[Rfam]
RNA: terC RNA
Organism: Rhodobaculum claviforme
RNA sequence: CUCGCGGGCCGGGCCCCUCUGGCAACAUGGUGUUGCGAUGUCGGACCGCAUCG
Numbered sequence: 001c002u003c004g005c006g007g008g009c010c011g012g013g014c015c016c017c018u019c020u021g022g023c024a025a026c027a028u029g030g031u032g033u034u035g036c037g038a039u040g041u042c043g044g045a046c047c048g049c050a051u052c053g
Stems, first nucleotide, its partner, number of pairs: 006047002009044004022036006
Dot-bracket structure: .....((.((((.........((((((...))))))....)))).))......